[Rfam]
RNA: Mammalian CPEB3 ribozyme
Organism: Crocodylus porosus
RNA sequence: AGGGGAUCACAAGUUCCAGGCCACAGCAGAAAUGCUCAUGGUGCAGCCCUGUCAGAUUCCAAUGACUCUGCAAAUUCUGUU
Number, nucleotide and partner (000 for none) at each position: 001a000002g000003g000004g000005g000006a000007u000008c000009a000010c000011a000012a000013g049014u000015u000016c000017c000018a000019g048020g047021c046022c000023a000024c000025a081026g080027c079028a078029g077030a076031a075032a000033u043034g042035c000036u000037c000038a000039u000040g000041g000042u034043g033044c000045a000046g021047c020048c019049c013050u000051g000052u000053c070054a069055g068056a067057u000058u065059c064060c000061a000062a000063u000064g059065a058066c000067u056068c055069u054070g053071c000072a000073a000074a000075u031076u030077c029078u028079g027080u026081u025